[Rfam]
RNA sequence: AGUCUAUGAUGAGCCUCUUUACUUUCUGACACCUCAUAUGAAAGUGUUGCUUUAGCAACGCUUGAUUACAUUUCUGUGUCUGAGGCUU
Numbered sequence: 001a002g003u004c005u006a007u008g009a010u011g012a013g014c015c016u017c018u019u020u021a022c023u024u025u026c027u028g029a030c031a032c033c034u035c036a037u038a039u040g041a042a043a044g045u046g047u048u049g050c051u052u053u054a055g056c057a058a059c060g061c062u063u064g065a066u067u068a069c070a071u072u073u074c075u076g077u078g079u080c081u082g083a084g085g086c087u088u
Stems, first nucleotide, its partner, number of pairs: 001087004044061001047058004

Shown here is an 88-nucleotide RNA from Callorhinchus milii, a member of the family "Small nucleolar RNA SNORD60". NCBI's taxonomy places the organism under Eukaryota, Eumetazoa, Chondrichthyes, Callorhinchidae, Callorhinchus.